Shown here is a 413-nucleotide RNA from Synchytrium microbalum, a member of the family "Group I catalytic intron". On this family, see Cech, Annu Rev Biochem 1990: "Self-splicing of group I introns". Taxonomically the source falls in Synchytrium (Eukaryota, Opisthokonta, Chytridiomycetes, Synchytriales). Rfam describes the family as follows. Group I catalytic introns are large self-splicing ribozymes.
[Rfam]
RNA sequence: UUUCUGGUUUGAAUUUUGUGAACCGAAAAGUAUCCCGCUCAUAGGAUGCAAGAUCUUCUGUGAGGAAAACCGGUUGCGCUCUUGCCAAGUCCAGCUUUGCUCAGCUUGUUAGCCAGAUGCUAGUGAAUGACUCGGUCAUUUGCAACACGUCCAAAUUGCGGGAACACCCUUAGAGCCAUUUGUACCAAGGUUUUGUGGAAACACGGGACUGGCCCAGAGUAACGAAUCUGGGAUGCAGGUAAAAAGCAAAUGGAUUGGGUCAUCCGCAGCCAAGCUCCUAAGUCUGUAAGGUUUGGAACCAUUGGGUUCCGCAGAUAUGGAGAAGGUUCAACGACUAGAUGGAGGUGGGUUUGAGAGUCUAACCAGCUCGAUGAGAACUUAAGGUAUAGUCUAGACCUCACCGAAAGGUGAGG
Numbered sequence: 001u002u003u004c005u006g007g008u009u010u011g012a013a014u015u016u017u018g019u020g021a022a023c024c025g026a027a028a029a030g031u032a033u034c035c036c037g038c039u040c041a042u043a044g045g046a047u048g049c050a051a052g053a054u055c056u057u058c059u060g061u062g063a064g065g066a067a068a069a070c071c072g073g074u075u076g077c078g079c080u081c082u083u084g085c086c087a088a089g090u091c092c093a094g095c096u097u098u099g100c101u102c103a104g105c106u107u108g109u110u111a112g113c114c115a116g117a118u119g120c121u122a123g124u125g126a127a128u129g130a131c132u133c134g135g136u137c138a139u140u141u142g143c144a145a146c147a148c149g150u151c152c153a154a155a156u157u158g159c160g161g162g163a164a165c166a167c168c169c170u171u172a173g174a175g176c177c178a179u180u181u182g183u184a185c186c187a188a189g190g191u192u193u194u195g196u197g198g199a200a201a202c203a204c205g206g207g208a209c210u211g212g213c214c215c216a217g218a219g220u221a222a223c224g225a226a227u228c229u230g231g232g233a234u235g236c237a238g239g240u241a242a243a244a245a246g247c248a249a250a251u252g253g254a255u256u257g258g259g260u261c262a263u264c265c266g267c268a269g270c271c272a273a274g275c276u277c278c279u280a281a282g283u284c285u286g287u288a289a290g291g292u293u294u295g296g297a298a299c300c301a302u303u304g305g306g307u308u309c310c311g312c313a314g315a316u317a318u319g320g321a322g323a324a325g326g327u328u329c330a331a332c333g334a335c336u337a338g339a340u341g342g343a344g345g346u347g348g349g350u351u352u353g354a355g356a357g358u359c360u361a362a363c364c365a366g367c368u369c370g371a372u373g374a375g376a377a378c379u380u381a382a383g384g385u386a387u388a389g390u391c392u393a394g395a396c397c398u399c400a401c402c403g404a405a406a407g408g409u410g411a412g413g
Base pairs, nucleotide, nucleotide: 005025006024007023008022009021010020011019013017146347147346148345150343152341153340157268158267159266160265161264162263167259168258169257269327270326275322276321277320278319283315284314285313286312287311331392333391334390335389336388337387349378350377351376352375398411399410400409401408402407